Overview: Shown here is an 81-nucleotide sequence from Deinococcus deserti, a member of the family "tRNA". Rfam classes the family as a transfer RNA.
[Rfam]
RNA sequence: GCCGGGAUGGCGGAAUGGUAGACGCAUUCGACUUAAAAUCGAACGCCGCAAGGCUUACGGGUUCAAGUCCCGUUCUCGGCA
Numbered sequence: 001g002c003c004g005g006g007a008u009g010g011c012g013g014a015a016u017g018g019u020a021g022a023c024g025c026a027u028u029c030g031a032c033u034u035a036a037a038a039u040c041g042a043a044c045g046c047c048g049c050a051a052g053g054c055u056u057a058c059g060g061g062u063u064c065a066a067g068u069c070c071c072g073u074u075c076u077c078g079g080c081a
Stems, first nucleotide, its partner, number of pairs: 001080007010025003027043005057073005

Rfam's curators write: Transfer RNA (tRNA) molecules are approximately 80 nucleotides in length. It scores 61 bits against the family's covariance model.